A member of the RNA family "Group II catalytic intron D1-D4-1" from Pseudoduganella ginsengisoli, 84 nucleotides long. The match comes from Rfam's covariance-model search (46 bits). Group II introns are found in rRNA, tRNA and mRNA of organelles in fungi, plants and protists, and also in mRNA in bacteria. Its family is annotated with Group II intron splicing in the Gene Ontology.

[Rfam]
RNA sequence: GCCUCAUGCCUGAAAAGGCGAUGUUGGUAAAACCGAGCGAGAAGUCAGCAGAGGCCGUAGUAGCUGUUUUUUUUAGCGAAGGGC
Numbered sequence: 001g002c003c004u005c006a007u008g009c010c011u012g013a014a015a016a017g018g019c020g021a022u023g024u025u026g027g028u029a030a031a032a033c034c035g036a037g038c039g040a041g042a043a044g045u046c047a048g049c050a051g052a053g054g055c056c057g058u059a060g061u062a063g064c065u066g067u068u069u070u071u072u073u074u075a076g077c078g079a080a081g082g083g084c
Stems, first nucleotide, its partner, number of pairs: 001028002004023001007020005045052002054084003063077004